A member of the RNA family "Lysine riboswitch aptamer" from Pediococcus cellicola, 185 nucleotides long.

[Rfam]
RNA sequence: AAUAAUUUAAGAGGUUGCAACCAACAAGAGUAAGCAGUAGAGUUUCUAUCGAACUUUGAAGCUGUUGAAAGGGGCGGUUGCCGAAGCACUGGAUCUGGAUAGGGGGUUCGGCUAGCUGGGGCGUAGUUUAAGAGACUGCGAACUGUCGCAGCAAAAUAUGUCGGCUGCGGGGCGCUAUCGACAAU
Numbered sequence: 001a002a003u004a005a006u007u008u009a010a011g012a013g014g015u016u017g018c019a020a021c022c023a024a025c026a027a028g029a030g031u032a033a034g035c036a037g038u039a040g041a042g043u044u045u046c047u048a049u050c051g052a053a054c055u056u057u058g059a060a061g062c063u064g065u066u067g068a069a070a071g072g073g074g075c076g077g078u079u080g081c082c083g084a085a086g087c088a089c090u091g092g093a094u095c096u097g098g099a100u101a102g103g104g105g106g107u108u109c110g111g112c113u114a115g116c117u118g119g120g121g122c123g124u125a126g127u128u129u130a131a132g133a134g135a136c137u138g139c140g141a142a143c144u145g146u147c148g149c150a151g152c153a154a155a156a157u158a159u160g161u162c163g164g165c166u167g168c169g170g171g172g173c174g175c176u177a178u179c180g181a182c183a184a185u
Stems, first nucleotide, its partner, number of pairs: 006180001010176002017081006025073001033066006085117003089111008118144002122140007146170007

The organism belongs to Pediococcus, within Bacteria. Pairs were carried over by alignment from the consensus structure, which is taken from published work.